Shown here is an 82-nucleotide sequence from Alkaliphilus metalliredigens, a member of the family "Clostridiales-2 RNA". It is one of the family's seed sequences.
RNA sequence: AUACAUUGGGGAGUACAGAGGGGAUUCCCCUCUAUCGUAUUAAGGAGGGUGCUCAGGCUGCAUUGCAGCCGUCGAAGGGAAC
Numbered sequence: 001a002u003a004c005a006u007u008g009g010g011g012a013g014u015a016c017a018g019a020g021g022g023g024a025u026u027c028c029c030c031u032c033u034a035u036c037g038u039a040u041u042a043a044g045g046a047g048g049g050u051g052c053u054c055a056g057g058c059u060g061c062a063u064u065g066c067a068g069c070c071g072u073c074g075a076a077g078g079g080a081a082c
Stems, first nucleotide, its partner, number of pairs: 015035001017033006056070005

Record summary:
The family has 44 seed sequences and 285 matches in Rfam 15.1. By type it is a small RNA.